[Rfam]
Annotation: Shown here is a 76-nucleotide sequence from Chlorogloea sp. CCALA 695, a member of the family "Cyano-1 RNA".
RNA sequence: UCUUGUGUGAGGAGCGAACAGAAUCGAAAAAGCUCUUGGGGUCGAAACACGGCAAGACUCCCAGGAGUUUUUUUGU
Numbered sequence: 001u002c003u004u005g006u007g008u009g010a011g012g013a014g015c016g017a018a019c020a021g022a023a024u025c026g027a028a029a030a031a032g033c034u035c036u037u038g039g040g041g042u043c044g045a046a047a048c049a050c051g052g053c054a055a056g057a058c059u060c061c062c063a064g065g066a067g068u069u070u071u072u073u074u075g076u
Stems, first nucleotide, its partner, number of pairs: 015075001026074005033067002038062003041058003
It is annotated as a small RNA.